[Rfam]
RNA: Bacterial large signal recognition particle RNA
Organism: Clostridium aminobutyricum
RNA sequence: ACGGAUAAAAUAGCUUGACUUUCAACAAAAUUUAUAGUAUAUUAACUAGAUGUGAAUUGCCUUUUAAAAGCUCCGCUUGGUUAGGUUUGGGUCCUGCGCAAUAGGACUCUGCGAAUCUUGUCAGGUCCGGAAGGAAGCAGCAAUAAGUGGAAGCUCUUAUGUGCCGCAGAUUAGCCUUCUCCUUGCCGGUGGAGCUUUUAAAGGGCAAUUCUUUGUCUUUAUUUGA
Numbered sequence: 001a002c003g004g005a006u007a008a009a010a011u012a013g014c015u016u017g018a019c020u021u022u023c024a025a026c027a028a029a030a031u032u033u034a035u036a037g038u039a040u041a042u043u044a045a046c047u048a049g050a051u052g053u054g055a056a057u058u059g060c061c062u063u064u065u066a067a068a069a070g071c072u073c074c075g076c077u078u079g080g081u082u083a084g085g086u087u088u089g090g091g092u093c094c095u096g097c098g099c100a101a102u103a104g105g106a107c108u109c110u111g112c113g114a115a116u117c118u119u120g121u122c123a124g125g126u127c128c129g130g131a132a133g134g135a136a137g138c139a140g141c142a143a144u145a146a147g148u149g150g151a152a153g154c155u156c157u158u159a160u161g162u163g164c165c166g167c168a169g170a171u172u173a174g175c176c177u178u179c180u181c182c183u184u185g186c187c188g189g190u191g192g193a194g195c196u197u198u199u200a201a202a203g204g205g206c207a208a209u210u211c212u213u214u215g216u217c218u219u220u221a222u223u224u225g226a
Stems, first nucleotide, its partner, number of pairs: 002225006008042001010040002018038003022034001048218005055210005061204016079187002084182002089177004094169005099161002102159005108151005118143004126135003
Dot-bracket structure: .(((((((.((......(((.(...........).))))).).....(((((..(((((.((((((((((((((((..((...((...((((.(((((((.(((((.(((((.....((((....(((....)))....))))...)))))...)))))))...)))))....))))...))...)).)))))))))))))))).)))))...))))).)))))).